[Rfam]
RNA sequence: GGUAAAAGGAUAGCGCCUGGCCUCUAGUAGGUGACGAGGAUAGAGUUAAUCGAAAGUUUCGGCGGAUGGCUCUAAGGGACUGCACUCUUCAGGUGAAGAAAAAAAACAAUUGCAAAAUUGUAACAAAAACUUCAUCAAGCAGAUAG
Numbered sequence: 001g002g003u004a005a006a007a008g009g010a011u012a013g014c015g016c017c018u019g020g021c022c023u024c025u026a027g028u029a030g031g032u033g034a035c036g037a038g039g040a041u042a043g044a045g046u047u048a049a050u051c052g053a054a055a056g057u058u059u060c061g062g063c064g065g066a067u068g069g070c071u072c073u074a075a076g077g078g079a080c081u082g083c084a085c086u087c088u089u090c091a092g093g094u095g096a097a098g099a100a101a102a103a104a105a106a107c108a109a110u111u112g113c114a115a116a117a118u119u120g121u122a123a124c125a126a127a128a129a130c131u132u133c134a135u136c137a138a139g140c141a142g143a144u145a146g
Base pairs, nucleotide, nucleotide: 020032021031022030023029041074042073043072044071045070050062051061052060053059075088076087077086078085092136093135094134095133096132097131098130106121107120108119109118110117111116

This 146-nucleotide RNA from Vagococcus entomophilus belongs to the Rfam family "glmS glucosamine-6-phosphate activated ribozyme aptamer". The source organism's lineage runs through Bacteria, Bacillati, Bacillota, Bacilli and Vagococcus. The match comes from Rfam's covariance-model search (85 bits).